[Rfam]
RNA sequence: GUUUUAUGAAAUGUGUGUCAACUGAUCCCAGAAUCCCCUGGGCCUGGGUUGGCCUUCUGUCAGCUGGUUGUUACUGGGCCUCAGGGCUCUGGGGGCAUGAUCUGACAGUCACCCUGAAAAC
Number, nucleotide and partner (000 for none) at each position: 001g121002u120003u119004u118005u000006a000007u000008g000009a000010a000011a000012u000013g000014u000015g000016u000017g000018u000019c000020a000021a000022c000023u000024g000025a000026u000027c000028c000029c000030a000031g000032a000033a000034u000035c000036c086037c085038c084039u083040g082041g081042g000043c000044c000045u000046g000047g000048g000049u000050u000051g000052g000053c000054c000055u000056u000057c000058u000059g000060u000061c000062a000063g000064c000065u000066g000067g000068u000069u000070g000071u000072u000073a000074c000075u000076g000077g000078g000079c000080c000081u041082c040083a039084g038085g037086g036087c000088u000089c000090u000091g000092g000093g000094g000095g000096c000097a000098u000099g000100a000101u000102c000103u000104g000105a000106c000107a000108g000109u000110c000111a000112c000113c000114c000115u000116g000117a000118a004119a003120a002121c001

The family of this 121-nucleotide RNA sequence from Salmo trutta is "Small nucleolar RNA SNORD10". The family's RNA type in Rfam is C/D-box small nucleolar RNA. The match comes from Rfam's covariance-model search (43 bits). The base pairs follow the family's consensus structure, which was predicted with WAR. Rfam links the family to the GO terms RNA processing and nucleolus. NCBI's taxonomy places the organism under Eukaryota, Craniata, Clupeocephala, Euteleosteomorpha, Salmo. A reference for the family is Huttenhofer et al. (2001), "RNomics: an experimental approach that identifies 201 candidates for novel, small, non-messenger RNAs in mouse", EMBO J.